[Rfam]
RNA sequence: GCCCUGUGGUUGCUGGAUCUGUAUGAUGUUACUGCACUCCAGCGUAUGAUGAAGGGCGCACAUUAAUACUGUGAUGUUAGCAUGGGGUAUGAUGUUGCUGUGCUGUCCCCAUAGCCCGGUCACAGUGACAUGU
Numbered sequence: 001g002c003c004c005u006g007u008g009g010u011u012g013c014u015g016g017a018u019c020u021g022u023a024u025g026a027u028g029u030u031a032c033u034g035c036a037c038u039c040c041a042g043c044g045u046a047u048g049a050u051g052a053a054g055g056g057c058g059c060a061c062a063u064u065a066a067u068a069c070u071g072u073g074a075u076g077u078u079a080g081c082a083u084g085g086g087g088u089a090u091g092a093u094g095u096u097g098c099u100g101u102g103c104u105g106u107c108c109c110c111a112u113a114g115c116c117c118g119g120u121c122a123c124a125g126u127g128a129c130a131u132g133u
Base pairs, nucleotide, nucleotide: 001057002056003055004054007048008047011044012043013042014041015040016039017038019034021032022031069125071123072122073121074120075119080115081114082112083111084110085109087107091103
Description
Shown here is a 133-nucleotide RNA sequence from Aquarana catesbeiana, a member of the family "Small nucleolar RNA SNORA84". The family's RNA type in Rfam is H/ACA-box small nucleolar RNA. Lineage of the source: Eukaryota > Deuterostomia > Teleostomi > Ranidae > Aquarana.